[Rfam]
RNA sequence: ACUUACGAUUAGUUUUGCAGGUUUGCAUUUCAGCAUAUAUGUAUACAUAGCUGUGCAAAUCCAUGCAAAACUGACCGUGAUG
Numbered sequence: 001a002c003u004u005a006c007g008a009u010u011a012g013u014u015u016u017g018c019a020g021g022u023u024u025g026c027a028u029u030u031c032a033g034c035a036u037a038u039a040u041g042u043a044u045a046c047a048u049a050g051c052u053g054u055g056c057a058a059a060u061c062c063a064u065g066c067a068a069a070a071c072u073g074a075c076c077g078u079g080a081u082g
Base pairs, nucleotide, nucleotide: 003080004079005078006077007076009074010073011072012071013070014069015068016067017066018065019064020062021061022059023058024057025056026055027054028053032052033051034050
mir-19 microRNA precursor family: an 82-nucleotide RNA sequence from Marmota marmota. Clan: mir-19 clan. Pairs were carried over by alignment from the consensus structure, which was predicted with RNAalifold.